[Rfam]
RNA sequence: UUCUUAUCAAGAGAAGCGGAGGGACUGGCCCGAUGAUGCUUCAGCAACCAACAUUUUUGUAAGGUGCUAAAUCCAGCGGCCCGAUCCGGUAGAUAAGAA
Numbered sequence: 001u002u003c004u005u006a007u008c009a010a011g012a013g014a015a016g017c018g019g020a021g022g023g024a025c026u027g028g029c030c031c032g033a034u035g036a037u038g039c040u041u042c043a044g045c046a047a048c049c050a051a052c053a054u055u056u057u058u059g060u061a062a063g064g065u066g067c068u069a070a071a072u073c074c075a076g077c078g079g080c081c082c083g084a085u086c087c088g089g090u091a092g093a094u095a096a097g098a099a
Base pairs, nucleotide, nucleotide: 001099002098003097004096005095006094007093008092013042014041015040016039017038021031022030023029025076026075027074028073043068044067045066046065048064049063051060052059053058072091077088078087079086
The record is a 99-nucleotide RNA sequence from Ureibacillus manganicus, which matches "SAM riboswitch aptamer (S box leader)" in Rfam. Rfam links the family to the GO term regulation of gene expression.